The family of this 156-nucleotide RNA from Aspergillus luchuensis is "A. fumigatus sRNA Afu_254". It scores 65 bits against the family's covariance model. For this family Rfam cites "Small ncRNA transcriptome analysis from Aspergillus fumigatus suggests a novel mechanism for regulation of protein synthesis" (Jochl et al., Nucleic Acids Res, 2008).
RNA sequence: UUACGAAGUAUACUUCACUCCUUCUCAAAUACUUUCAUAGUAUAUAUACUACCCACCUACCCUAUCUAUCACCAUGGCCCCCUGCGAGUGCAAGUGCUGCUCUGGCAGCUGCAACUCCUGCUCUUGCGCUAACUGCAAGGUGUGUUACACAUCCUC
Numbered sequence: 001u002u003a004c005g006a007a008g009u010a011u012a013c014u015u016c017a018c019u020c021c022u023u024c025u026c027a028a029a030u031a032c033u034u035u036c037a038u039a040g041u042a043u044a045u046a047u048a049c050u051a052c053c054c055a056c057c058u059a060c061c062c063u064a065u066c067u068a069u070c071a072c073c074a075u076g077g078c079c080c081c082c083u084g085c086g087a088g089u090g091c092a093a094g095u096g097c098u099g100c101u102c103u104g105g106c107a108g109c110u111g112c113a114a115c116u117c118c119u120g121c122u123c124u125u126g127c128g129c130u131a132a133c134u135g136c137a138a139g140g141u142g143u144g145u146u147a148c149a150c151a152u153c154c155u156c
Stems, first nucleotide, its partner, number of pairs: 083107003090100003111136003120127002